Shown here is a 124-nucleotide sequence from Bucco capensis, a member of the family "Small nucleolar RNA ACA64". The family has 30 seed sequences and 9,537 matches in Rfam 15.1. Gene Ontology terms of the family: RNA processing and nucleolus.

RNA sequence: ACAGUCUGAAAAUCCCUUGGGGUCUCCUGUGCUCCCUGGUGCGAUAACUGUGCCGACAGCAGAGGGAGCAUUAAACUCAUUGCCCACAGGAAAGUGUGGGAAGUGAUUCCCAUGUAGCUCAUUA
Numbered sequence: 001a002c003a004g005u006c007u008g009a010a011a012a013u014c015c016c017u018u019g020g021g022g023u024c025u026c027c028u029g030u031g032c033u034c035c036c037u038g039g040u041g042c043g044a045u046a047a048c049u050g051u052g053c054c055g056a057c058a059g060c061a062g063a064g065g066g067a068g069c070a071u072u073a074a075a076c077u078c079a080u081u082g083c084c085c086a087c088a089g090g091a092a093a094g095u096g097u098g099g100g101a102a103g104u105g106a107u108u109c110c111c112a113u114g115u116a117g118c119u120c121a122u123u124a
Base pairs, nucleotide, nucleotide: 006050008048010045014039019034020033021032065118068115069114070113071112077106078105079104080103081102085098086097087096